[Rfam]
RNA sequence: CCAACGUGGACAUCCUGUGAGGUUGCUCUUGCAUGGCUCUGUCCGUGUGGCAUAUGGGAGCGCAGCACUUUGGUGCCAUGACGUACAGUCCCGUUCCACGACGUUGGACAGCAAACUAGUCCCCGGCCCUCAGGCUGGUGUGGACGGUGUCCUGUAUAUUCCUACAUCUUCCCAGAGCUGUUAAGCCGUUACUGGGGAGGUAAACCAUGCAGUGCACAAUC
Numbered sequence: 001c002c003a004a005c006g007u008g009g010a011c012a013u014c015c016u017g018u019g020a021g022g023u024u025g026c027u028c029u030u031g032c033a034u035g036g037c038u039c040u041g042u043c044c045g046u047g048u049g050g051c052a053u054a055u056g057g058g059a060g061c062g063c064a065g066c067a068c069u070u071u072g073g074u075g076c077c078a079u080g081a082c083g084u085a086c087a088g089u090c091c092c093g094u095u096c097c098a099c100g101a102c103g104u105u106g107g108a109c110a111g112c113a114a115a116c117u118a119g120u121c122c123c124c125g126g127c128c129c130u131c132a133g134g135c136u137g138g139u140g141u142g143g144a145c146g147g148u149g150u151c152c153u154g155u156a157u158a159u160u161c162c163u164a165c166a167u168c169u170u171c172c173c174a175g176a177g178c179u180g181u182u183a184a185g186c187c188g189u190u191a192c193u194g195g196g197g198a199g200g201u202a203a204a205c206c207a208u209g210c211a212g213u214g215c216a217c218a219a220u221c
Stems, first nucleotide, its partner, number of pairs: 001107007008044005014036002019028003047099004056092004060086001062084002065079001152212006168199006177186003
Dot-bracket structure: ((((((((((((.((...(((....)))......))...)))))..((((.....(((((.((.(.............)...)).)..))))...)))).)))))))............................................((((((..........((((((...(((....))).......)))))).......)))))).........
This 221-nucleotide RNA sequence from Scleropages formosus belongs to the Rfam family "Small nucleolar RNA SNORA73 family". The match comes from Rfam's covariance-model search (196 bits). The family's RNA type in Rfam is H/ACA-box small nucleolar RNA. From the family's description: U17 (SNORA73A and SNORA73B) also known as E1 belongs to the H/ACA class of small nucleolar RNAs (snoRNAs). Vertebrate U17 is intron-encoded and ranges in length from 200-230 nucleotides, longer than most snoRNAs. It is one of the most abundant snoRNAs in human cells and is essential for the cleavage of pre-rRNA within the 5' external transcribed spacer (ETS). This cleavage leads to the formation of 18S rRNA. Regions of the U17 RNA are complementary to rRNA and act as guides for RNA/RNA interactions, although these regions do not seem to be well conserved between organisms. The organism belongs to Scleropages, within Eukaryota. Clan: snR30-U17 clan. Rfam links the family to the GO terms nucleolus and RNA processing.